[Rfam]
RNA sequence: UUGGUUCCGGUUCACCUCAGCCGCACCGCGCGUCUGGGGACCCGGCGACU
Dot-bracket structure: ..(((.((((....((((((.((.......)).))))))..))))..)))
The record is a 50-nucleotide RNA, which matches "L31-Actinobacteria ribosomal protein leader" in Rfam. It is one of the family's seed sequences.